The record is a 128-nucleotide sequence from Tessaracoccus sp. OH4464_COT-324, which matches "FMN riboswitch aptamer (RFN element)" in Rfam.
The base pairs follow the family's consensus structure, which is taken from published work.
The organism belongs to Tessaracoccus, within Bacteria.
RNA sequence: CACGUAUUCCGGGGUCGGUGAAAGUCCGAACCGGCGGUCAAAGCCCGCGACCCUCCGCGCCACGCGCAGAGGUUGACUCGGUGGAAUUCCGGGGCCGACAGUAAAAGUCUGGAUGGGAGGAAUGCGAG
Dot-bracket structure: ..((((((((.....(((.......))).[[((((((.....[[))))...((.................))....(((((.......)))))]])).(((.....]]))).......))))))))..